[Rfam]
The record is a 66-nucleotide sequence from Pipistrellus kuhlii, which matches "Small nucleolar RNA SNORD24" in Rfam. Rfam classes the family as a C/D-box small nucleolar RNA. The literature on the family includes a 1995 paper in Nucleic Acids Res by Qu et al., "U24, a novel intron-encoded small nucleolar RNA with two 12 nt long, phylogenetically conserved complementarities to 28S rRNA". A search with the family's covariance model found it, with a score of 50 bits. Taxonomically the source falls in Pipistrellus (Eukaryota, Amniota, Laurasiatheria, Yangochiroptera).
RNA sequence: UGCAGAUGAUGUGAGAACGUUUGCUCUGCGACCUGAUGACGCUGAACCACCAAGAUCGCUGAUGCA
Numbered sequence: 001u002g003c004a005g006a007u008g009a010u011g012u013g014a015g016a017a018c019g020u021u022u023g024c025u026c027u028g029c030g031a032c033c034u035g036a037u038g039a040c041g042c043u044g045a046a047c048c049a050c051c052a053a054g055a056u057c058g059c060u061g062a063u064g065c066a
Base pairs, nucleotide, nucleotide: 001066002065003064004063